[Rfam]
RNA sequence: GCACGAUAAAGGCAAACCUUGGGUGAUCAGGGGACGCAAAGUAACAGGGUCUUUAUCUGUACAAAGAAGUACGGAUAAAAAUGAAAUUUUCAUACGUAUACGGAAAUAACGUAUCCCUAAGACAGCCUUACUACCAAA
Numbered sequence: 001g002c003a004c005g006a007u008a009a010a011g012g013c014a015a016a017c018c019u020u021g022g023g024u025g026a027u028c029a030g031g032g033g034a035c036g037c038a039a040a041g042u043a044a045c046a047g048g049g050u051c052u053u054u055a056u057c058u059g060u061a062c063a064a065a066g067a068a069g070u071a072c073g074g075a076u077a078a079a080a081a082u083g084a085a086a087u088u089u090u091c092a093u094a095c096g097u098a099u100a101c102g103g104a105a106a107u108a109a110c111g112u113a114u115c116c117c118u119a120a121g122a123c124a125g126c127c128u129u130a131c132u133a134c135c136a137a138a
Base pairs, nucleotide, nucleotide: 012037013036017032018031019030020029021028022027040132041131042130043129046128047127048126049123050122051121052120053119
c-di-GMP-I riboswitch aptamer: a 138-nucleotide RNA sequence from Candidatus Brocadia sinica. The organism belongs to Candidatus Brocadia sinica, within Bacteria. The family is grouped with related families in Rfam's "c-di-GMP_I riboswitch clan".